[Rfam]
RNA sequence: GAUCCCGGAGGUCAACAUCCGACAGCGCGAUGCGCCCUCGGGUGCGUGUUUC
Numbered sequence: 001g002a003u004c005c006c007g008g009a010g011g012u013c014a015a016c017a018u019c020c021g022a023c024a025g026c027g028c029g030a031u032g033c034g035c036c037c038u039c040g041g042g043u044g045c046g047u048g049u050u051u052c
Base pairs, nucleotide, nucleotide: 016044017043018042019041020040021039022038025035026034027033028032